[Rfam]
Shown here is a 308-nucleotide RNA sequence from Candida maltosa, a member of the family "Nuclear RNase P". The organism belongs to Candida maltosa, within Eukaryota. Its family is annotated with ribonuclease P activity, tRNA processing and ribonuclease P complex in the Gene Ontology. The match comes from Rfam's covariance-model search (74 bits). Ribonuclease P (RNase P) is a ubiquitous endoribonuclease, found in archaea, bacteria and eukarya as well as chloroplasts and mitochondria.
RNA sequence: GUCGUUUCGCAUUUACCCGUCAACACAAGGAGUCAUUUUGAACUCAAACAAAAUAAAAUACGGGUGGGAAAUUCGGUGGUACGCUCCAUCCAAUACAGUUAAUCUUCUCCUGAGAGAUUUUAUUCCUUAGCGUGAAAACGCAUGGGCGACGUUACAAGAGAUAUACACGGAGAUUUCGGGCUGUAACAGGCUUGCUUCGUAUGGGAAUGGCGUCGUGGAUGGUUGGCUGUAGGACUAUGUCUACAAGCUAUUUAGUGCAAUAUGCGAACUUGAACUCCAUGUUCAAGCACCCGAUACCGAUCAUCGAU
Dot-bracket structure: ((((.(((((((..(((((..........((((........))))...............)))))........[[[[[.........((((..............((((....))))............((((....)))).....(((((((.............((((((......................))))))........))))))).)))).........................................)))))))(((((((.....))))))).......]]]]].....))))
Numbered sequence: 001g002u003c004g005u006u007u008c009g010c011a012u013u014u015a016c017c018c019g020u021c022a023a024c025a026c027a028a029g030g031a032g033u034c035a036u037u038u039u040g041a042a043c044u045c046a047a048a049c050a051a052a053a054u055a056a057a058a059u060a061c062g063g064g065u066g067g068g069a070a071a072u073u074c075g076g077u078g079g080u081a082c083g084c085u086c087c088a089u090c091c092a093a094u095a096c097a098g099u100u101a102a103u104c105u106u107c108u109c110c111u112g113a114g115a116g117a118u119u120u121u122a123u124u125c126c127u128u129a130g131c132g133u134g135a136a137a138a139c140g141c142a143u144g145g146g147c148g149a150c151g152u153u154a155c156a157a158g159a160g161a162u163a164u165a166c167a168c169g170g171a172g173a174u175u176u177c178g179g180g181c182u183g184u185a186a187c188a189g190g191c192u193u194g195c196u197u198c199g200u201a202u203g204g205g206a207a208u209g210g211c212g213u214c215g216u217g218g219a220u221g222g223u224u225g226g227c228u229g230u231a232g233g234a235c236u237a238u239g240u241c242u243a244c245a246a247g248c249u250a251u252u253u254a255g256u257g258c259a260a261u262a263u264g265c266g267a268a269c270u271u272g273a274a275c276u277c278c279a280u281g282u283u284c285a286a287g288c289a290c291c292c293g294a295u296a297c298c299g300a301u302c303a304u305c306g307a308u
Stems, first nucleotide, its partner, number of pairs: 001308004006268007015065005030045004074299005088220004106117004130141004147215007167200006269287007